[Rfam]
RNA sequence: GGCUGUAAGGACCUUCUCUUCCCAGUUCUUCCCGGAGUCAGGAAAAGCUGGGUUGAGAGGGCGAAAAAAUAAAAAA
Numbered sequence: 001g002g003c004u005g006u007a008a009g010g011a012c013c014u015u016c017u018c019u020u021c022c023c024a025g026u027u028c029u030u031c032c033c034g035g036a037g038u039c040a041g042g043a044a045a046a047g048c049u050g051g052g053u054u055g056a057g058a059g060g061g062c063g064a065a066a067a068a069a070u071a072a073a074a075a076a
Stems, first nucleotide, its partner, number of pairs: 014059005021052005029044004034039001